Shown here is a 68-nucleotide RNA sequence, a member of the family "Selenocysteine insertion sequence 1".
The family's consensus secondary structure is taken from published work.
RNA sequence: GACGCUUCAUGACAGGAAGGACUGAAAUGUCUUGUGGACGCCUGGUCCUUCCCUGAUGUUCUCAUGGC
Numbered sequence: 001g002a003c004g005c006u007u008c009a010u011g012a013c014a015g016g017a018a019g020g021a022c023u024g025a026a027a028u029g030u031c032u033u034g035u036g037g038a039c040g041c042c043u044g045g046u047c048c049u050u051c052c053c054u055g056a057u058g059u060u061c062u063c064a065u066g067g068c
Stems, first nucleotide, its partner, number of pairs: 001068001003066002015052009029039003
The incorporation of selenocysteine into a protein sequence is directed by an in-frame UGA codon (usually a stop codon) within the coding region of the mRNA. Selenoprotein mRNAs contain a conserved secondary structure in the 3' UTR that is required for the distinction of UGA stop from UGA selenocysteine. The selenocysteine insertion sequence (SECIS) is around 60 nt in length and adopts a hairpin structure which is sufficiently well-defined and conserved to act as a computational screen for selenoprotein genes. Rfam's curators put it in the seed alignment. By type it is a cis-regulatory element. Gene Ontology term of the family: selenocysteine incorporation.